[Rfam]
RNA sequence: CGGGCAGUAUCUGUAUAGAACUGCACUUCAAUGUAGCUAAGCCAAUAGGACAACUAAAUAAGCAAACAUUCUGCCUUGAUCUGUAGUAGACAGGGACAGAGGG
Numbered sequence: 001c002g003g004g005c006a007g008u009a010u011c012u013g014u015a016u017a018g019a020a021c022u023g024c025a026c027u028u029c030a031a032u033g034u035a036g037c038u039a040a041g042c043c044a045a046u047a048g049g050a051c052a053a054c055u056a057a058a059u060a061a062g063c064a065a066a067c068a069u070u071c072u073g074c075c076u077u078g079a080u081c082u083g084u085a086g087u088a089g090a091c092a093g094g095g096a097c098a099g100a101g102g103g
Stems, first nucleotide, its partner, number of pairs: 002027002004024005010019002071099003074095005080090003
Shown here is a 103-nucleotide RNA from Bacillus thermotolerans, a member of the family "pan motif". The source organism's lineage runs through Bacteria, Bacillati, Bacilli, Bacillaceae and Bacillus. The match comes from Rfam's covariance-model search (56 bits). Pairs were carried over by alignment from the consensus structure, which is taken from published work.